This 298-nucleotide sequence from Kordia antarctica belongs to the Rfam family "Bacterial RNase P class A". Pairs were carried over by alignment from the consensus structure, which is taken from published work. Gene Ontology terms of the family: tRNA processing, ribonuclease P activity and dimeric ribonuclease P complex. The family's RNA type in Rfam is ribozyme. It scores 198 bits against the family's covariance model. The source organism's lineage runs through Bacteria, Bacteroidota, Flavobacteriia, Flavobacteriales and Kordia. Rfam describes the family as follows. Ribonuclease P (RNase P) is a ubiquitous endoribonuclease, found in archaea, bacteria and eukarya as well as chloroplasts and mitochondria.
RNA sequence: UAAGCAGGCUACCUUAUCGCUGCUUCUUUCGAGAAGGAGAGGAAAGUCCGGACACCAUAGUGCAUUGUAGCGGAUAACAUCCGUCCGUCGUAAGGCGAGGACAAGUGCAGCAGAAAGUAUGUACAGGUAAUGCUGUAGUGAAACCAGGUAAACUCUACGAGGUGCAAUGCCAUGUAUAUGAACGAUUUAAGAGCGGCACGCUCGAUGUUCAAGGGUAGGCAGAUAAAAGUUAUUGGUAACAGUAAUUUUAGAUAAAUGAUAAGGCUCGACAGGAUCCGGCUUACGGCCUGCUUUUUUU
Numbered sequence: 001u002a003a004g005c006a007g008g009c010u011a012c013c014u015u016a017u018c019g020c021u022g023c024u025u026c027u028u029u030c031g032a033g034a035a036g037g038a039g040a041g042g043a044a045a046g047u048c049c050g051g052a053c054a055c056c057a058u059a060g061u062g063c064a065u066u067g068u069a070g071c072g073g074a075u076a077a078c079a080u081c082c083g084u085c086c087g088u089c090g091u092a093a094g095g096c097g098a099g100g101a102c103a104a105g106u107g108c109a110g111c112a113g114a115a116a117g118u119a120u121g122u123a124c125a126g127g128u129a130a131u132g133c134u135g136u137a138g139u140g141a142a143a144c145c146a147g148g149u150a151a152a153c154u155c156u157a158c159g160a161g162g163u164g165c166a167a168u169g170c171c172a173u174g175u176a177u178a179u180g181a182a183c184g185a186u187u188u189a190a191g192a193g194c195g196g197c198a199c200g201c202u203c204g205a206u207g208u209u210c211a212a213g214g215g216u217a218g219g220c221a222g223a224u225a226a227a228a229g230u231u232a233u234u235g236g237u238a239a240c241a242g243u244a245a246u247u248u249u250a251g252a253u254a255a256a257u258g259a260u261a262a263g264g265c266u267c268g269a270c271a272g273g274a275u276c277c278g279g280c281u282u283a284c285g286g287c288c289u290g291c292u293u294u295u296u297u298u
Base pairs, nucleotide, nucleotide: 002293003292004291005290006289007288008287009286010285012264013263014262015261016260017259018258020039021038023036024035025034026033027032044282045281046280048279049278050277051276052275053164054163055162056161060199061198062197063196065160066159067158068157069156070084071083072082073081074080085099086097087096088095089094100155101154105153106152107149108148122137123136124135125134126133168221169220170219171218179211180210181209182208183207191203192202193201194200228247229246230245231244232243233242234241235240